Description
Shown here is a 123-nucleotide RNA from Glycine max, a member of the family "MIR1520 microRNA precursor family". It scores 115 bits against the family's covariance model. NCBI's taxonomy places the organism under Eukaryota, Embryophyta, Gunneridae, Pentapetalae, Glycine subgen. Soja. Its family is annotated with RISC complex and miRNA-mediated post-transcriptional gene silencing in the Gene Ontology. The family's consensus secondary structure was predicted with RNAalifold. Rfam 15.1 lists 1,934 matches to the family in 15 species.

RNA sequence: UUCUUGUUGGAUGAUGUUUGUCACGUGUCAUGUUCUGAUGUGAUGAUGUCAACUCCAUAAAAGAUGAAAUAAAUUAUUGUUUUCAUUGACCAAUCAGAACAUGACACGUGACAGUCAUCAUCU
Numbered sequence: 001u002u003c004u005u006g007u008u009g010g011a012u013g014a015u016g017u018u019u020g021u022c023a024c025g026u027g028u029c030a031u032g033u034u035c036u037g038a039u040g041u042g043a044u045g046a047u048g049u050c051a052a053c054u055c056c057a058u059a060a061a062a063g064a065u066g067a068a069a070u071a072a073a074u075u076a077u078u079g080u081u082u083u084c085a086u087u088g089a090c091c092a093a094u095c096a097g098a099a100c101a102u103g104a105c106a107c108g109u110g111a112c113a114g115u116c117a118u119c120a121u122c123u
Stems, first nucleotide, its partner, number of pairs: 020112004025107002029103003033099004038094002